[Rfam]
RNA sequence: CAUCCCGAGGGGCGUUGCAGCGCCGGUUUCCAUGCCGGCGUCAGGCUCGGGAUCCCAACGACGCUCACCGAUC
Numbered sequence: 001c002a003u004c005c006c007g008a009g010g011g012g013c014g015u016u017g018c019a020g021c022g023c024c025g026g027u028u029u030c031c032a033u034g035c036c037g038g039c040g041u042c043a044g045g046c047u048c049g050g051g052a053u054c055c056c057a058a059c060g061a062c063g064c065u066c067a068c069c070g071a072u073c
Base pairs, nucleotide, nucleotide: 002053003052004051005050006049007048008047021040022039023038024037025036026035
Rfam assigns this 73-nucleotide RNA from Ramlibacter algicola to the family "SAH (S-adenosyl-L-homocysteine) riboswitch aptamer". The literature on the family includes a 2008 paper in Mol Cell by Wang et al., "Riboswitches that sense S-adenosylhomocysteine and activate genes involved in coenzyme recycling". A search with the family's covariance model found it, with a score of 59 bits.